The family of this 97-nucleotide RNA from Megamonas hypermegale is "TPP riboswitch aptamer (THI element)".
The organism belongs to Megamonas, within Bacteria.
[Rfam]
RNA sequence: AUAAACCACUAGGGGAACCGCAAGGUUGAGAAGUUAAAACUGACCCUUAGAACCUGAUAUGGCUAAUACCAGCGUAGGGAAGUGGCAAACGGAAAUC
Numbered sequence: 001a002u003a004a005a006c007c008a009c010u011a012g013g014g015g016a017a018c019c020g021c022a023a024g025g026u027u028g029a030g031a032a033g034u035u036a037a038a039a040c041u042g043a044c045c046c047u048u049a050g051a052a053c054c055u056g057a058u059a060u061g062g063c064u065a066a067u068a069c070c071a072g073c074g075u076a077g078g079g080a081a082g083u084g085g086c087a088a089a090c091g092g093a094a095a096u097c
Base pairs, nucleotide, nucleotide: 006085007084008083009082010081011047012046013045014044016041017026018025019024033040034039053078054077055076056075060071061070062069